[Rfam]
RNA sequence: AUUUGUCGUCUGUUUUCUUGAAAUAUUGUCCAGGAAGACUUACAGCAGUUAAAUCC
Numbered sequence: 001a002u003u004u005g006u007c008g009u010c011u012g013u014u015u016u017c018u019u020g021a022a023a024u025a026u027u028g029u030c031c032a033g034g035a036a037g038a039c040u041u042a043c044a045g046c047a048g049u050u051a052a053a054u055c056c
Stems, first nucleotide, its partner, number of pairs: 008043002012039005018033003
Annotation
Shown here is a 56-nucleotide RNA from Streptococcus hillyeri, a member of the family "Lacto-rpoB RNA". Taxonomically the source falls in Streptococcus (Bacteria, Bacillota, Lactobacillales, Streptococcaceae). A search with the family's covariance model found it, with a score of 58 bits. The family's consensus secondary structure is taken from published work. The family's RNA type in Rfam is cis-regulatory element.